[Rfam]
Record summary: The record is a 102-nucleotide RNA from Mesobacillus campisalis, which matches "Purine riboswitch aptamer" in Rfam. Rfam describes the family as follows. Riboswitches are metabolite binding domains within certain messenger RNAs that serve as precision sensors for their corresponding targets. The source organism's lineage runs through Bacteria, Bacillota, Caryophanales, Bacillaceae and Mesobacillus.
RNA sequence: CAAUUAAAUACUAAUAUUCGUCGUAUAAUCUUGGGGAUAUGGCCCAAAAGUUUCUACCGAGCUGCCGUAAAUAGCUUGACUACGCGGAUUGCAACUGGAUGU
Numbered sequence: 001c002a003a004u005u006a007a008a009u010a011c012u013a014a015u016a017u018u019c020g021u022c023g024u025a026u027a028a029u030c031u032u033g034g035g036g037a038u039a040u041g042g043c044c045c046a047a048a049a050g051u052u053u054c055u056a057c058c059g060a061g062c063u064g065c066c067g068u069a070a071a072u073a074g075c076u077u078g079a080c081u082a083c084g085c086g087g088a089u090u091g092c093a094a095c096u097g098g099a100u101g102u
Stems, first nucleotide, its partner, number of pairs: 018088002022084004029049001031047005058078007